[Rfam]
RNA sequence: GGCAAUCUUUUUGAUAUAGAACACUCAUAUCGAUAAAAUGACUUGAACCAUUU
Number, nucleotide and partner (000 for none) at each position: 001g000002g000003c000004a000005a000006u000007c000008u000009u000010u000011u033012u032013g031014a030015u029016a028017u027018a000019g000020a000021a000022c000023a000024c000025u000026c000027a017028u016029a015030u014031c013032g012033a011034u000035a000036a000037a000038a000039u000040g000041a000042c000043u000044u000045g000046a000047a000048c000049c000050a000051u000052u000053u000
The record is a 53-nucleotide RNA sequence from Protea cynaroides, which matches "Plastid-atpF group II-D1 intron" in Rfam. Plastid atpF is a non-coding RNA (ncRNA) recognised in plastids. It has been reported in the intron group II-D1 region of ATP synthase (atpF) genes. The match comes from Rfam's covariance-model search (66 bits). Rfam links the family to the GO term Group II intron splicing. The family's consensus secondary structure was predicted with LocARNA.